The record is an 88-nucleotide sequence from Syntrophobacter fumaroxidans, which matches "c-di-GMP-I-GGC riboswitch aptamer" in Rfam. A reference for the family is Kulshina et al. (2009), "Recognition of the bacterial second messenger cyclic diguanylate by its cognate riboswitch", Nat Struct Mol Biol. The family's consensus secondary structure is taken from published work. The match comes from Rfam's covariance-model search (66 bits).

[Rfam]
RNA sequence: UUCGAUAAUGGCAAACUGGUCGAAAGACCGGGACGCAAAGCCACUGGCCUAAGUCCCCUCUGAGGAUACGGUAGCAGGGUCGCCGGGC
Numbered sequence: 001u002u003c004g005a006u007a008a009u010g011g012c013a014a015a016c017u018g019g020u021c022g023a024a025a026g027a028c029c030g031g032g033a034c035g036c037a038a039a040g041c042c043a044c045u046g047g048c049c050u051a052a053g054u055c056c057c058c059u060c061u062g063a064g065g066a067u068a069c070g071g072u073a074g075c076a077g078g079g080u081c082g083c084c085g086g087g088c
Stems, first nucleotide, its partner, number of pairs: 003085002011036002016031006034074001040080003044077003047072003